Rfam assigns this 354-nucleotide RNA sequence from Mediterraneibacter torques to the family "Bacterial RNase P class A".
[Rfam]
RNA sequence: UGAGUAAGACAGACAAUCGCGGCUGCAAGUGCCGAAAGGCCGCAGGUGAGGAAAGUCCGGGCUUCAUAGGGCAGGAUGCCGGAUAACGUCCGGUGGAGGUGACUCCCAGGCCAGUGCAACAGAAAUAAACCGCCUGUGCAUUUUGUGCAGGUAAGGGUGGAAAGGCAGUGUAAGAGACUACCGCCUUGCUGGUAACAGGAAGGGCACAUGUAAACCCCAUCCGAAGCAAGACCGAAUAUAAGCAAUGUGGCUGCCCGUCACGCUUAAGGUGGGUCGCUUGAGCGCAGCGGUAACGCGGCGCCUAGAUAGAUGAUUGUUCAACGACAUAACCCGGCUUAUCGUUUUGCUCAAUCA
Numbered sequence: 001u002g003a004g005u006a007a008g009a010c011a012g013a014c015a016a017u018c019g020c021g022g023c024u025g026c027a028a029g030u031g032c033c034g035a036a037a038g039g040c041c042g043c044a045g046g047u048g049a050g051g052a053a054a055g056u057c058c059g060g061g062c063u064u065c066a067u068a069g070g071g072c073a074g075g076a077u078g079c080c081g082g083a084u085a086a087c088g089u090c091c092g093g094u095g096g097a098g099g100u101g102a103c104u105c106c107c108a109g110g111c112c113a114g115u116g117c118a119a120c121a122g123a124a125a126u127a128a129a130c131c132g133c134c135u136g137u138g139c140a141u142u143u144u145g146u147g148c149a150g151g152u153a154a155g156g157g158u159g160g161a162a163a164g165g166c167a168g169u170g171u172a173a174g175a176g177a178c179u180a181c182c183g184c185c186u187u188g189c190u191g192g193u194a195a196c197a198g199g200a201a202g203g204g205c206a207c208a209u210g211u212a213a214a215c216c217c218c219a220u221c222c223g224a225a226g227c228a229a230g231a232c233c234g235a236a237u238a239u240a241a242g243c244a245a246u247g248u249g250g251c252u253g254c255c256c257g258u259c260a261c262g263c264u265u266a267a268g269g270u271g272g273g274u275c276g277c278u279u280g281a282g283c284g285c286a287g288c289g290g291u292a293a294c295g296c297g298g299c300g301c302c303u304a305g306a307u308a309g310a311u312g313a314u315u316g317u318u319c320a321a322c323g324a325c326a327u328a329a330c331c332c333g334g335c336u337u338a339u340c341g342u343u344u345u346g347c348u349c350a351a352u353c354a
Base pairs, nucleotide, nucleotide: 001350002349003348004347005346006345007344008343009342010341011339012318013317014316015315016314017313018312020048021047023045024044025043026042053337054336055335057334058333059332060331061330062226063225064224065223069256070255071254072253074222075221076220077219078218079093080092081091082090083089094108095106096105097104098103109217110216114215115214116211117210118209130156131155132152133151134150135149136148137147138146139145140144164182165181167179168178169177183205184203185202186201187200189198190197191196230275231274232273233272240265241264242263243262247261248260249259250258251257282301283300284299285298287296288295289294
By type it is a ribozyme. The organism belongs to Mediterraneibacter, within Bacteria.